[Rfam]
RNA sequence: AGUUGCAAAACUUGUGGUGGCAUCACAAGCUGUUUUGCCAUCCGAAAUUUGUGGUUGA
Numbered sequence: 001a002g003u004u005g006c007a008a009a010a011c012u013u014g015u016g017g018u019g020g021c022a023u024c025a026c027a028a029g030c031u032g033u034u035u036u037g038c039c040a041u042c043c044g045a046a047a048u049u050u051g052u053g054g055u056u057g058a
Base pairs, nucleotide, nucleotide: 001056002055003054004053005052006051007050008049009048012045013044014043016042017041018040019039020038021037022036025033026032
Overview:
Shown here is a 58-nucleotide RNA from Caenorhabditis nigoni, a member of the family "mir-7583 microRNA precursor family". The family has 4 seed sequences and 38 matches in Rfam 15.1. The organism belongs to Caenorhabditis, within Eukaryota.